Notes
The family of this 106-nucleotide sequence from Theobroma cacao is "MIR390 microRNA precursor family". NCBI's taxonomy places the organism under Eukaryota, Streptophytina, Embryophyta, Gunneridae, Theobroma. The family has 16 seed sequences and 649 matches in Rfam 15.1. Pairs were carried over by alignment from the consensus structure, which was predicted with WAR. A reference for the family is Gustafson et al. (2005), "ASRP: the Arabidopsis Small RNA Project Database", Nucleic Acids Res.

RNA sequence: UGGGAGAAUCUGUAAAGCUCAGGAGGGAUAGCGCCAUCUCGACGAGGUUGUGUUUUAAAUGUUCAUCAGCUGGCGCUAUCUAUCCUGAGUUUCAUGGGUUCUUCCU
Numbered sequence: 001u002g003g004g005a006g007a008a009u010c011u012g013u014a015a016a017g018c019u020c021a022g023g024a025g026g027g028a029u030a031g032c033g034c035c036a037u038c039u040c041g042a043c044g045a046g047g048u049u050g051u052g053u054u055u056u057a058a059a060u061g062u063u064c065a066u067c068a069g070c071u072g073g074c075g076c077u078a079u080c081u082a083u084c085c086u087g088a089g090u091u092u093c094a095u096g097g098g099u100u101c102u103u104c105c106u
Base pairs, nucleotide, nucleotide: 010097016091017090018089019088020087021086022085023084024083026081027080028079029078030077031076032075033074034073035072